[Rfam]
RNA: RT-18 RNA
Organism: Anaerovibrio lipolyticus
RNA sequence: CACCCAUUGGUGAAAAUUUUCCGACGAAAGGAUUGGGAUAGUAGAUUAUAUCGAAAUUUCAAUAGGAGAUAAGAAA
Numbered sequence: 001c002a003c004c005c006a007u008u009g010g011u012g013a014a015a016a017u018u019u020u021c022c023g024a025c026g027a028a029a030g031g032a033u034u035g036g037g038a039u040a041g042u043a044g045a046u047u048a049u050a051u052c053g054a055a056a057u058u059u060c061a062a063u064a065g066g067a068g069a070u071a072a073g074a075a076a
Base pairs, nucleotide, nucleotide: 001012002011003010004009019068020067021066022065032063033062034061035060036059037058038057044052045051